Small nucleolar RNA Z107/R87: a 107-nucleotide sequence from Quercus lobata. Pairs were carried over by alignment from the consensus structure, which was predicted with RNAfold. The literature on the family includes a 2003 paper in Nucleic Acids Res by Chen et al., "The high diversity of snoRNAs in plants: identification and comparative study of 120 snoRNA genes from Oryza sativa". Taxonomically the source falls in Quercus (Eukaryota, Viridiplantae, Embryophyta, Pentapetalae). Rfam links the family to the GO terms RNA processing and nucleolus.
RNA sequence: GAUCACAGUGAUGUCCACAAGAAAUUCAAGCUCAACAGUCCGGAAAGCAGACUCCUCUACACUCUAGAGAACUUUGCAUGUUGACAACCCCGCUAACCUGAGCGAUC
Numbered sequence: 001g002a003u004c005a006c007a008g009u010g011a012u013g014u015c016c017a018c019a020a021g022a023a024a025u026u027c028a029a030g031c032u033c034a035a036c037a038g039u040c041c042g043g044a045a046a047g048c049a050g051a052c053u054c055c056u057c058u059a060c061a062c063u064c065u066a067g068a069g070a071a072c073u074u075u076g077c078a079u080g081u082u083g084a085c086a087a088c089c090c091c092g093c094u095a096a097c098c099u100g101a102g103c104g105a106u107c
Stems, first nucleotide, its partner, number of pairs: 001107004006102001
Dot-bracket structure: ((((.(...............................................................................................).))))